[Rfam]
RNA sequence: AUACUCCUUUGUUGUGUUAAGUGUUGGCAAAUUCUGAACCCCGCCCUAGCGGUUCAGAUGUUGAACCCCGAGCCUCCCUCCCCCAUAGAGGUUCGGGGUUUUUUUAUGCCCGCCA
Numbered sequence: 001a002u003a004c005u006c007c008u009u010u011g012u013u014g015u016g017u018u019a020a021g022u023g024u025u026g027g028c029a030a031a032u033u034c035u036g037a038a039c040c041c042c043g044c045c046c047u048a049g050c051g052g053u054u055c056a057g058a059u060g061u062u063g064a065a066c067c068c069c070g071a072g073c074c075u076c077c078c079u080c081c082c083c084c085a086u087a088g089a090g091g092u093u094c095g096g097g098g099u100u101u102u103u104u105u106a107u108g109c110c111c112g113c114c115a
Base pairs, nucleotide, nucleotide: 033058034057035056036055037054038053039052040051063102064101065100066098067097068096069095070094071093072092073091074090075089076088